This 55-nucleotide RNA sequence belongs to the Rfam family "chrB-b RNA". Rfam's curators put it in the seed alignment.
[Rfam]
RNA sequence: CGGGGGUGUGCCGGCAGACUCCCGCCUUAAGACGCUCUUCGCGUCCAAGCUCUGC
Number, nucleotide and partner (000 for none) at each position: 001c024002g023003g022004g021005g000006g020007u000008g000009u000010g000011c000012c000013g000014g055015c054016a053017g052018a051019c000020u006021c004022c003023c002024g001025c000026c000027u000028u000029a000030a000031g045032a044033c043034g042035c041036u000037c000038u000039u000040c000041g035042c034043g033044u032045c031046c000047a000048a000049g000050c000051u018052c017053u016054g015055c014